Shown here is a 75-nucleotide RNA from Streptomyces sp. SID625, a member of the family "ASpks TB sRNA". For this family Rfam cites "Identification of small RNAs in Mycobacterium tuberculosis" (Arnvig and Young, Mol Microbiol, 2009). By type it is an antisense RNA. The base pairs follow the family's consensus structure, which is taken from published work. It scores 77 bits against the family's covariance model. NCBI's taxonomy places the organism under Bacteria, Bacillati, Actinomycetes, Streptomycetaceae, Streptomyces.

RNA sequence: CUUGACCGAGCCCAGCCACAGCGGCUUGUCCUCCGGCCGGCCCUGCCCGUAGGUGGCGAUGAUGGCCUGCGCCUC
Numbered sequence: 001c002u003u004g005a006c007c008g009a010g011c012c013c014a015g016c017c018a019c020a021g022c023g024g025c026u027u028g029u030c031c032u033c034c035g036g037c038c039g040g041c042c043c044u045g046c047c048c049g050u051a052g053g054u055g056g057c058g059a060u061g062a063u064g065g066c067c068u069g070c071g072c073c074u075c
Stems, first nucleotide, its partner, number of pairs: 014026004031071001033069001038065001044059001047056003